[Rfam]
RNA sequence: AUCCAUCCUGAGUGGCCAGAUUAUUAUGAUAUCUGAAUACAUAAUAAUCUGGCCACUCAGGGUAUAU
Numbered sequence: 001a002u003c004c005a006u007c008c009u010g011a012g013u014g015g016c017c018a019g020a021u022u023a024u025u026a027u028g029a030u031a032u033c034u035g036a037a038u039a040c041a042u043a044a045u046a047a048u049c050u051g052g053c054c055a056c057u058c059a060g061g062g063u064a065u066a067u
Stems, first nucleotide, its partner, number of pairs: 005063013019049010
The record is a 67-nucleotide RNA sequence from Cnephaeus nilssonii, which matches "mir-9256 microRNA precursor family" in Rfam. The family's consensus secondary structure was predicted with RNAalifold. It scores 81 bits against the family's covariance model.